RNA sequence: UUGCUUGAGGAGCGCUGCAACGGUUUAACCGCCAGGCUCAGGCAUUUAAAAACGGCGCUCGUUCAUC
Numbered sequence: 001u002u003g004c005u006u007g008a009g010g011a012g013c014g015c016u017g018c019a020a021c022g023g024u025u026u027a028a029c030c031g032c033c034a035g036g037c038u039c040a041g042g043c044a045u046u047u048a049a050a051a052a053c054g055g056c057g058c059u060c061g062u063u064c065a066u067c
Base pairs, nucleotide, nucleotide: 002044003043004042005041006040007039008038021031022030023029024028
SAH (S-adenosyl-L-homocysteine) riboswitch aptamer: a 67-nucleotide sequence from Ectothiorhodosinus mongolicus.